Shown here is a 68-nucleotide RNA sequence from Sinocyclocheilus grahami, a member of the family "miR-430 microRNA precursor family". Rfam links the family to the GO terms miRNA-mediated post-transcriptional gene silencing and RISC complex. Pairs were carried over by alignment from the consensus structure, which was predicted with RNAalifold. Taxonomically the source falls in Sinocyclocheilus (Eukaryota, Deuterostomia, Neopterygii, Cyprinidae). Its Rfam clan is "mir-290 clan". On this family, see Giraldez et al., Science 2005: "MicroRNAs regulate brain morphogenesis in zebrafish".
RNA sequence: AGGAUUACUUCAAACAGGAACAUUGAUUGGUCCUAUUUUUAUAAGUGCUUCUCUUUGGGGUAGUUUUA
Numbered sequence: 001a002g003g004a005u006u007a008c009u010u011c012a013a014a015c016a017g018g019a020a021c022a023u024u025g026a027u028u029g030g031u032c033c034u035a036u037u038u039u040u041a042u043a044a045g046u047g048c049u050u051c052u053c054u055u056u057g058g059g060g061u062a063g064u065u066u067u068a
Stems, first nucleotide, its partner, number of pairs: 004064008014055001016052004021047004026042001028041001